The record is a 180-nucleotide RNA from Pseudomonas sp. TTU2014-080ASC, which matches "Pseudomonas sRNA P1" in Rfam. Rfam describes the family as follows. This small RNA (sRNA) was computationally identified in the genome of the opportunistic pathogen Pseudomonas aeruginosa and its expression verified by northern blot analysis. Taxonomically the source falls in Pseudomonas (Bacteria, Gammaproteobacteria, Pseudomonadales, Pseudomonadaceae).

RNA sequence: ACACCCGUUUUAUAGCUGUUAUGGGUUUGACCCGAGCUUAGCCUUGUUCAUUUUUUUACACAAUAGUCACAUAAAAAUCUGAACACACCCCGGUUAACCCCCCGGCAAACUCAACACAGACAGCUAUUUGACGGCCCUUCUCCGCCCCAAAACCGGCCACCACGCCCCAUAACAGGGCAA
Numbered sequence: 001a002c003a004c005c006c007g008u009u010u011u012a013u014a015g016c017u018g019u020u021a022u023g024g025g026u027u028u029g030a031c032c033c034g035a036g037c038u039u040a041g042c043c044u045u046g047u048u049c050a051u052u053u054u055u056u057u058a059c060a061c062a063a064u065a066g067u068c069a070c071a072u073a074a075a076a077a078u079c080u081g082a083a084c085a086c087a088c089c090c091c092g093g094u095u096a097a098c099c100c101c102c103c104g105g106c107a108a109a110c111u112c113a114a115c116a117c118a119g120a121c122a123g124c125u126a127u128u129u130g131a132c133g134g135c136c137c138u139u140c141u142c143c144g145c146c147c148c149a150a151a152a153c154c155g156g157c158c159a160c161c162a163c164g165c166c167c168c169a170u171a172a173c174a175g176g177g178c179a180a
Stems, first nucleotide, its partner, number of pairs: 023101003027097002036091001041089001044085001046084003053077006164178002167175001
Dot-bracket structure: ......................(((.((.......(....(..(.(((....((((((.............))))))....))))...).)....)).)))..............................................................((.(.......).))..